[Rfam]
RNA sequence: UGUCGGCUAGCUUAUCAGACUGGUGUUGGAGGCUGAAUUUGCAACAACAGUCUGUAAGCUGGCUGACG
Dot-bracket structure: .......((((((((..(((((.(((((.(.........).))))).))))).)))))))).......
Notes:
The family of this 68-nucleotide RNA sequence from Oryzias melastigma is "mir-21 microRNA precursor family". The literature on the family includes a 2006 paper in FEBS Lett by Xu et al., "Identification of microRNAs from different tissues of chicken embryo and adult chicken". The organism belongs to Oryzias, within Eukaryota.